rhtB sRNA: a 72-nucleotide RNA. Rfam classes the family as a small RNA.
RNA sequence: GCUAUCUGAUAGUCCUUCUUAGCCAUCUUUAGCUCCCGGUUUUUAAGGACUAUCUGCACUUGAAAUGUUCCC
Numbered sequence: 001g002c003u004a005u006c007u008g009a010u011a012g013u014c015c016u017u018c019u020u021a022g023c024c025a026u027c028u029u030u031a032g033c034u035c036c037c038g039g040u041u042u043u044u045a046a047g048g049a050c051u052a053u054c055u056g057c058a059c060u061u062g063a064a065a066u067g068u069u070c071c072c
Stems, first nucleotide, its partner, number of pairs: 008054009021041004